[Rfam]
RNA: nhaA-I RNA
RNA sequence: GGGUCCAGCCUGGAAAGGCUGGAGGUAUUGGAAUGGUCGGGCCGCCAUUC
Numbered sequence: 001g002g003g004u005c006c007a008g009c010c011u012g013g014a015a016a017g018g019c020u021g022g023a024g025g026u027a028u029u030g031g032a033a034u035g036g037u038c039g040g041g042c043c044g045c046c047a048u049u050c
Stems, first nucleotide, its partner, number of pairs: 005022007031050007